RNA sequence: AAAUAGAUCCGGUAGGUAAGGCUACUACAGGGAUAUGGGUUGCUGCCGCAAAAUAGUGGAGACACUAUGCGUUGGUUUGAACAGGCGAUAUCGAAACCAAGGUAUCAUCUAAUGCAACUUCACCGCCCUGUAGAGUUAAAGCUCAAACGGUGGCGUAAAUCA
Numbered sequence: 001a002a003a004u005a006g007a008u009c010c011g012g013u014a015g016g017u018a019a020g021g022c023u024a025c026u027a028c029a030g031g032g033a034u035a036u037g038g039g040u041u042g043c044u045g046c047c048g049c050a051a052a053a054u055a056g057u058g059g060a061g062a063c064a065c066u067a068u069g070c071g072u073u074g075g076u077u078u079g080a081a082c083a084g085g086c087g088a089u090a091u092c093g094a095a096a097c098c099a100a101g102g103u104a105u106c107a108u109c110u111a112a113u114g115c116a117a118c119u120u121c122a123c124c125g126c127c128c129u130g131u132a133g134a135g136u137u138a139a140a141g142c143u144c145a146a147a148c149g150g151u152g153g154c155g156u157a158a159a160u161c162a
Stems, first nucleotide, its partner, number of pairs: 007156002010153001011148001013100001015143003020137003025133008039118005045077001046075003054067002057064002084109002087106001090103003
The family of this 162-nucleotide RNA from Fusobacterium ulcerans is "M-box riboswitch aptamer (ykoK leader)". The base pairs follow the family's consensus structure. From the family's description: M-box riboswitch, also know as ykoK leader is described as a metaloregulatory RNA that sense divalent metals and function as a genetic control element of genes related to divalent metal transport in bacteria. It was first reported upstream of the B.subtilis ykoK gene and genes with related functions in other bacteria.